[Rfam]
RNA sequence: ACGUGUCACCUGAUGAAGAAUUUUGGAUGUAAAAUCAUAUCAGUAUUCCUGAGUGCGCAAAACCAUGCGGAUAAUUUCCAUGUUGCCUUCCUUCUGAUCAGACACG
Numbered sequence: 001a002c003g004u005g006u007c008a009c010c011u012g013a014u015g016a017a018g019a020a021u022u023u024u025g026g027a028u029g030u031a032a033a034a035u036c037a038u039a040u041c042a043g044u045a046u047u048c049c050u051g052a053g054u055g056c057g058c059a060a061a062a063c064c065a066u067g068c069g070g071a072u073a074a075u076u077u078c079c080a081u082g083u084u085g086c087c088u089u090c091c092u093u094c095u096g097a098u099c100a101g102a103c104a105c106g
Base pairs, nucleotide, nucleotide: 003105004104005103024080025079026078027077
Rfam assigns this 106-nucleotide RNA from Hortaea werneckii to the family "Small nucleolar RNA Z13/snr52".
Its family is annotated with nucleolus and RNA processing in the Gene Ontology.
Lineage of the source: Eukaryota > saccharomyceta > leotiomyceta > Dothideomycetes > Hortaea.
It is annotated as a C/D-box small nucleolar RNA.
The match comes from Rfam's covariance-model search (71 bits).